[Rfam]
RNA: Metazoan signal recognition particle RNA
RNA sequence: GCCGGGCCUGGUGGUGUGUGCCUGUAGUCCCAGCUGCGAGGGAGGCUGAGCCCGCUUGCUUGAGCCCAGGAGUUCUGGACUGCCGUGCUCUGUGCCGAGCGGGUGUCCAAGCUAAGGCCGCCAUCAAUAUGGUGACCCGCGGGGAGCUGCGGGACACCAGGUUGACUAAGGAGGGGUGAACCGGCCCAGGUCGGAGACGGAGCAGGUCAAAGCUCCCAUGUCAGACAGUAGUGGGAUCGUGCCUGUGAAUAGCCACGCCAGUGUAGCCUGAACAAUACAGGGACACAAAGACUCUU
Dot-bracket structure: (((((((.((......)).))))....(((..........)))))).(((.(...((.((...(..((((....(((.((((.((((..((((.(...((((((((((..((((.(.(.(.(((((((.(((((.(((((((....))))))).))))).)))).(...)..(((((.....((((....(((....)))....))))...))))).))).).).)..)))).))...))))))))).)))).)))).)))).)))))))..).....)).))......).)))..